[Rfam]
RNA sequence: GUAUUCUUGCGCCCAUGAACUCCAUCCUGUCCGCCCUUCGACGUCGCCGCUCGCCCCUUCCCCAGGGUCUGGCUUAGUCAGUUCGAGGACGCGCGUUGCACACGGAUUGAACCCGCAACGCACAGGUAGUUCGAAUCACGAAAGCCACGGCCAGUCCGUGGCUUUUUG
Numbered sequence: 001g002u003a004u005u006c007u008u009g010c011g012c013c014c015a016u017g018a019a020c021u022c023c024a025u026c027c028u029g030u031c032c033g034c035c036c037u038u039c040g041a042c043g044u045c046g047c048c049g050c051u052c053g054c055c056c057c058u059u060c061c062c063c064a065g066g067g068u069c070u071g072g073c074u075u076a077g078u079c080a081g082u083u084c085g086a087g088g089a090c091g092c093g094c095g096u097u098g099c100a101c102a103c104g105g106a107u108u109g110a111a112c113c114c115g116c117a118a119c120g121c122a123c124a125g126g127u128a129g130u131u132c133g134a135a136u137c138a139c140g141a142a143a144g145c146c147a148c149g150g151c152c153a154g155u156c157c158g159u160g161g162c163u164u165u166u167u168g
Stems, first nucleotide, its partner, number of pairs: 007134002010095003014091001032085002040079002044076001046073002049070001054065001141165010
RNA: Burkholderia sRNA 7
Organism: Paraburkholderia caffeinitolerans